[Rfam]
Nucleotides: 100
Stems, first nucleotide, its partner, number of pairs: 018086001021083005029049006058076005
Number, partner (000 for none) and nucleotide at each position: 001000a002000u003000c004000c005000u006000a007000g008000g009000a010000a011000a012000a013000u014000a015000a016000a017000u018086a019000c020000g021083u022082u023081g024080u025079a026000u027000a028000a029049c030048c031047u032046c033045a034044a035000u036000a037000a038000u039000a040000u041000g042000g043000u044034u045033u046032g047031a048030g049029g050000g051000u052000c053000u054000c055000u056000a057000c058076c059075a060074g061073g062072a063000a064000c065000c066000g067000a068000u069000a070000a071000a072062u073061c074060c075059u076058g077000a078000u079025u080024a081023c082022a083021a084000a085000a086018u087000u088000c089000u090000u091000u092000g093000c094000c095000u096000u097000u098000c099000a100000u